[Rfam]
RNA sequence: UAAUAUCUUCGGGGCGGGGUGUAAUUCCCCACCGGUGGUUAUAGCCCACGAGCUAAGUUUUAGCAUGAUUCGGUGAAAUUCCGAGGCCGACAGUACAGUCUGGAUGAAAGAAGGUAAGA
Numbered sequence: 001u002a003a004u005a006u007c008u009u010c011g012g013g014g015c016g017g018g019g020u021g022u023a024a025u026u027c028c029c030c031a032c033c034g035g036u037g038g039u040u041a042u043a044g045c046c047c048a049c050g051a052g053c054u055a056a057g058u059u060u061u062a063g064c065a066u067g068a069u070u071c072g073g074u075g076a077a078a079u080u081c082c083g084a085g086g087c088c089g090a091c092a093g094u095a096c097a098g099u100c101u102g103g104a105u106g107a108a109a110g111a112a113g114g115u116a117a118g119a
Stems, first nucleotide, its partner, number of pairs: 004116007017029003031099002033089002035049004044087002054063001069085005091102003
RNA: FMN riboswitch aptamer (RFN element)